[Rfam]
RNA sequence: AGUUGCUCAUUCAACUAUUUAUGACGGCCCCGUAUUUAGACGGAAUUGUUGCCUCAUAAGCCUCCGAAUGAUGCCAAAGAAAUGGUGCCUAUCGUCCAACCAAACCGAUAACAGACGCGCAAGCGCUUUAUCAAGCAUCGGGCGACACGUGGAGUGAGGCACCGCCUG
Numbered sequence: 001a002g003u004u005g006c007u008c009a010u011u012c013a014a015c016u017a018u019u020u021a022u023g024a025c026g027g028c029c030c031c032g033u034a035u036u037u038a039g040a041c042g043g044a045a046u047u048g049u050u051g052c053c054u055c056a057u058a059a060g061c062c063u064c065c066g067a068a069u070g071a072u073g074c075c076a077a078a079g080a081a082a083u084g085g086u087g088c089c090u091a092u093c094g095u096c097c098a099a100c101c102a103a104a105c106c107g108a109u110a111a112c113a114g115a116c117g118c119g120c121a122a123g124c125g126c127u128u129u130a131u132c133a134a135g136c137a138u139c140g141g142g143c144g145a146c147a148c149g150u151g152g153a154g155u156g157a158g159g160c161a162c163c164g165c166c167u168g
Stems, first nucleotide, its partner, number of pairs: 005074002007071006019059006026053003084163007093144005107132005146156003

Notes: The family of this 168-nucleotide RNA sequence from Serratia proteamaculans is "Glm Y RNA activator of glmS mRNA". This family consists of a number of bacterial RNA genes of around 167 bases in length. For this family Rfam cites "Two seemingly homologous noncoding RNAs act hierarchically to activate glmS mRNA translation" (Urban and Vogel, PLoS Biol, 2008). Rfam classes the family as a small RNA. The source organism's lineage runs through Bacteria, Pseudomonadota, Gammaproteobacteria, Enterobacterales and Serratia proteamaculans. It is one of the family's seed sequences.